[Rfam]
RNA sequence: CACGAUAAAGGCAAACCAUGGGAAACUGUGGGACGCAAAGCUAAAGGGCCGUAUAAGGUAGCCAGUUACCGAAA
Numbered sequence: 001c002a003c004g005a006u007a008a009a010g011g012c013a014a015a016c017c018a019u020g021g022g023a024a025a026c027u028g029u030g031g032g033a034c035g036c037a038a039a040g041c042u043a044a045a046g047g048g049c050c051g052u053a054u055a056a057g058g059u060a061g062c063c064a065g066u067u068a069c070c071g072a073a074a
Stems, first nucleotide, its partner, number of pairs: 003071002011036002016031006034061001039067004046063002048059003

The record is a 74-nucleotide RNA sequence from Isachenkonia alkalipeptolytica, which matches "c-di-GMP-I-GGC riboswitch aptamer" in Rfam. Clan: c-di-GMP_I riboswitch clan. The base pairs follow the family's consensus structure, which is taken from published work.